Xanthine riboswitch aptamer (NMT1 RNA): a 56-nucleotide sequence from Pseudaquabacterium pictum. A reference for the family is Yu and Breaker (2020), "A bacterial riboswitch class senses xanthine and uric acid to regulate genes associated with purine oxidation", RNA. NCBI's taxonomy places the organism under Bacteria, Pseudomonadati, Betaproteobacteria, Sphaerotilaceae, Pseudaquabacterium. The match comes from Rfam's covariance-model search (46 bits). Rfam links the family to the GO term purine nucleobase binding.

Nucleotides: 056
Base pairs, nucleotide, nucleotide: 005052006051007050008049009048010047015041018043019042021038022037023036024035025034026033027032
Number, partner (000 for none) and nucleotide at each position: 001000c002000c003000c004000a005052a006051g007050c008049g009048u010047a011000g012000a013000a014000g015041c016000g017000u018043u019042c020000a021038c022037c023036g024035g025034u026033g027032c028000a029000c030000c031000a032027g033026c034025a035024c036023c037022g038021g039000c040000c041015g042019g043018a044000a045000a046000u047010u048009g049008c050007g051006c052005u053000u054000g055000a056000a